RNA: Small nucleolar RNA SNORA51
RNA sequence: AGCCUCCUGGUGCUUGCCGUUGGCUGUGUUCGUAAACUGACUCUACUGAAAGAGGAGGCAGAGUAAACCUGCCCUUACAUACCCCAGCCUAGGCCCUUUGCCUGGUCUGUAUUGUGAAGGGGGGAAAUGG
Numbered sequence: 001a002g003c004c005u006c007c008u009g010g011u012g013c014u015u016g017c018c019g020u021u022g023g024c025u026g027u028g029u030u031c032g033u034a035a036a037c038u039g040a041c042u043c044u045a046c047u048g049a050a051a052g053a054g055g056a057g058g059c060a061g062a063g064u065a066a067a068c069c070u071g072c073c074c075u076u077a078c079a080u081a082c083c084c085c086a087g088c089c090u091a092g093g094c095c096c097u098u099u100g101c102c103u104g105g106u107c108u109g110u111a112u113u114g115u116g117a118a119g120g121g122g123g124g125a126a127a128u129g130g
Base pairs, nucleotide, nucleotide: 002059003058004057005056006055007054008053022041026037027036029034072122073121074120075119076118085109086108087107089105090104091103092102093101094100